Gammaprotebacteria rimP leader: a 128-nucleotide RNA sequence from Ferrimonas balearica. On this family, see Naville and Gautheret, Genome Biol 2010: "Premature terminator analysis sheds light on a hidden world of bacterial transcriptional attenuation". Its family is annotated with regulation of gene expression in the Gene Ontology. Lineage of the source: Bacteria > Pseudomonadati > Pseudomonadota > Alteromonadales > Ferrimonas balearica.
Nucleotides: 128
Stems, first nucleotide, its partner, number of pairs: 035060009108121004
Number, partner (000 for none) and nucleotide at each position: 001000u002000g003000c004000a005000c006000u007000g008000c009000a010000c011000a012000u013000c014000a015000g016000a017000a018000c019000a020000g021000g022000g023000u024000a025000c026000a027000g028000u029000c030000a031000a032000c033000u034000u035060a036059a037058a038057g039056c040055c041054c042053c043052g044000u045000u046000u047000u048000c049000a050000a051000c052043c053042g054041g055040g056039g057038u058037u059036u060035u061000u062000u063000g064000u065000u066000a067000u068000c069000u070000g071000c072000a073000c074000u075000c076000u077000u078000g079000g080000g081000u082000u083000g084000g085000c086000u087000a088000u089000c090000c091000u092000a093000g094000a095000u096000a097000g098000u099000c100000g101000g102000g103000u104000g105000a106000c107000a108121g109120g110119g111118c112000u113000u114000u115000a116000u117000a118111g119110c120109c121108c122000u123000u124000u125000u126000u127000u128000u